[Rfam]
This 104-nucleotide RNA from Vagococcus entomophilus belongs to the Rfam family "TPP riboswitch aptamer (THI element)". The organism belongs to Vagococcus, within Bacteria. Rfam links the family to the GO term thiamine pyrophosphate binding.

RNA sequence: ACCAUCACAAAGGGGUGCCAGUAGGCUGAGAUUGAGUCAUUUGACUCGGACCCUUCGAACCUGAUUUCAUUGACAUGAGCGUAGGGAUUGUGAUGGAGUAGACU
Number, nucleotide and partner (000 for none) at each position: 001a000002c000003c000004a000005u000006c092007a091008c090009a089010a088011a054012g053013g052014g051015g000016u048017g026018c025019c024020a000021g000022u000023a000024g019025g018026c017027u000028g000029a000030g000031a000032u000033u000034g047035a046036g045037u044038c000039a000040u000041u000042u000043g000044a037045c036046u035047c034048g016049g000050a000051c014052c013053c012054u011055u000056c000057g000058a000059a000060c085061c084062u083063g082064a000065u000066u079067u078068c077069a076070u000071u000072g000073a000074c000075a000076u069077g068078a067079g066080c000081g000082u063083a062084g061085g060086g000087a000088u010089u009090g008091u007092g006093a000094u000095g000096g000097a000098g000099u000100a000101g000102a000103c000104u000